HDV ribozyme from F. prausnitzii: a 70-nucleotide RNA from Faecalibacterium prausnitzii. Rfam links the family to the GO term catalytic activity. Taxonomically the source falls in Faecalibacterium prausnitzii (Bacteria, Clostridia, Eubacteriales, Oscillospiraceae).

RNA sequence: GCCAUCCAGAUAUGCUGCCUCUCCGUGGUGAGCAGCAGGCAACGAGAGUUCCCUCUCGGCUAAAGCAUGU
Number, nucleotide and partner (000 for none) at each position: 001g036002c035003c000004a000005u032006c000007c030008a000009g000010a000011u000012a000013u000014g000015c000016u000017g029018c028019c027020u000021c000022u000023c000024c000025g000026u000027g019028g018029u017030g007031a000032g005033c000034a000035g002036c001037a000038g000039g000040c000041a000042a000043c058044g057045a056046g055047a054048g000049u000050u000051c000052c000053c000054u047055c046056u045057c044058g043059g000060c000061u000062a000063a000064a000065g000066c000067a000068u000069g000070u000